The record is a 52-nucleotide sequence, which matches "Streptococcus sRNA SpF59 (ldcC RNA)" in Rfam.
[Rfam]
RNA sequence: CGACCGCUGCUUUUGCAGCCGAGGCCAGACGGACAGCCGGGUCGAAUGCCGA
Numbered sequence: 001c002g003a004c005c006g007c008u009g010c011u012u013u014u015g016c017a018g019c020c021g022a023g024g025c026c027a028g029a030c031g032g033a034c035a036g037c038c039g040g041g042u043c044g045a046a047u048g049c050c051g052a
Stems, first nucleotide, its partner, number of pairs: 001044005006019005
Rfam classes the family as a small RNA.